[Rfam]
RNA sequence: UGGAUCUCGACAGGGUUGAUAUGAGAACACACGAGCAAUCAACGGCUAUAACGACGCUACGUCAUUGUUACAGCUCUCGUUUCAUGUGUUCUCAGGUCACCCCUGCUGAGCUCUU
Number, nucleotide and partner (000 for none) at each position: 001u000002g000003g000004a000005u000006c000007u109008c108009g000010a000011c105012a104013g103014g102015g000016u000017u099018g098019a097020u000021a000022u000023g093024a092025g091026a090027a089028c088029a087030c086031a085032c000033g000034a000035g000036c000037a000038a000039u000040c000041a000042a000043c000044g000045g000046c000047u000048a000049u000050a000051a000052c000053g000054a000055c000056g000057c000058u000059a000060c000061g000062u000063c000064a000065u000066u000067g000068u000069u000070a000071c000072a000073g000074c000075u000076c000077u000078c000079g000080u000081u000082u000083c000084a000085u031086g030087u029088g028089u027090u026091c025092u024093c023094a000095g000096g000097u019098c018099a017100c000101c000102c014103c013104u012105g011106c000107u000108g008109a007110g000111c000112u000113c000114u000115u000